[Rfam]
RNA sequence: GGGAAAUGAGGAGUGGUUGUUAACUCGCUUAUAUUAUUAUUAUAUGCGAGAAGAGCGUUUCGCUCCGCCUGUUACGACAAUUGAGCACUCUCCUUUGUCUUACCAUCUGAUCCC
Numbered sequence: 001g002g003g004a005a006a007u008g009a010g011g012a013g014u015g016g017u018u019g020u021u022a023a024c025u026c027g028c029u030u031a032u033a034u035u036a037u038u039a040u041u042a043u044a045u046g047c048g049a050g051a052a053g054a055g056c057g058u059u060u061c062g063c064u065c066c067g068c069c070u071g072u073u074a075c076g077a078c079a080a081u082u083g084a085g086c087a088c089u090c091u092c093c094u095u096u097g098u099c100u101u102a103c104c105a106u107c108u109g110a111u112c113c114c
Stems, first nucleotide, its partner, number of pairs: 001114004014105004024050005052091004057086003069083001071081002
Source information
The family of this 114-nucleotide sequence from Brassica carinata is "Small nucleolar RNA Z279/snoR105/snoR108". The organism belongs to Brassica, within Eukaryota. The family's RNA type in Rfam is C/D-box small nucleolar RNA. On this family, see Marker et al., Curr Biol 2002: "Experimental RNomics: identification of 140 candidates for small non-messenger RNAs in the plant Arabidopsis thaliana". Its family is annotated with RNA processing and nucleolus in the Gene Ontology. Pairs were carried over by alignment from the consensus structure, which was predicted with PFOLD. Rfam's curators write: This family includes the plant snoRNAs known as Z279, snoR105 and snoR108.